[Rfam]
RNA sequence: GCAUUGGGGUAAGUCCUAUACGGUCAGCUCCCUUCGAAUUCCCCCAGGGCUUGACGGCAGCAAGGGUAGUUGGUUGUAGCGACGCGAUGUAGUCAACUUGCCCUU
Dot-bracket structure: ......((((((((.(((((((((.........................................................)).)).)))))...))))))))..
Numbered sequence: 001g002c003a004u005u006g007g008g009g010u011a012a013g014u015c016c017u018a019u020a021c022g023g024u025c026a027g028c029u030c031c032c033u034u035c036g037a038a039u040u041c042c043c044c045c046a047g048g049g050c051u052u053g054a055c056g057g058c059a060g061c062a063a064g065g066g067u068a069g070u071u072g073g074u075u076g077u078a079g080c081g082a083c084g085c086g087a088u089g090u091a092g093u094c095a096a097c098u099u100g101c102c103c104u105u
Stems, first nucleotide, its partner, number of pairs: 007103008016092005021086002023083002
This 105-nucleotide RNA from Azobacteroides pseudotrichonymphae belongs to the Rfam family "Bacteroidales small SRP". Gene Ontology terms of the family: signal recognition particle, plasma membrane targeting and SRP-dependent cotranslational protein targeting to membrane, signal sequence recognition. It is one of the family's seed sequences. It is annotated as a non-coding RNA gene. The source organism's lineage runs through Bacteria, Pseudomonadati, Bacteroidota, Bacteroidia and Azobacteroides pseudotrichonymphae (SeqCode). The family is grouped with related families in Rfam's "SRP clan".